[Rfam]
RNA sequence: CGCUAUACUAGCGACUGAAAUUACCGGCCCACAUCCUUCGGGCCGGUUUUCAAUGUGU
Numbered sequence: 001c002g003c004u005a006u007a008c009u010a011g012c013g014a015c016u017g018a019a020a021u022u023a024c025c026g027g028c029c030c031a032c033a034u035c036c037u038u039c040g041g042g043c044c045g046g047u048u049u050u051c052a053a054u055g056u057g058u
Base pairs, nucleotide, nucleotide: 002012003011004010005009016052017051018050019049023047024046025045026044027043028042029041030040
Overview
The record is a 58-nucleotide RNA sequence from Citrobacter koseri, which matches "Enterobacterial sRNA STnc450" in Rfam. It is annotated as a small RNA. Pairs were carried over by alignment from the consensus structure, which was predicted with CMfinder. It is one of the family's seed sequences. Lineage of the source: Bacteria > Pseudomonadota > Gammaproteobacteria > Enterobacteriaceae > Citrobacter koseri.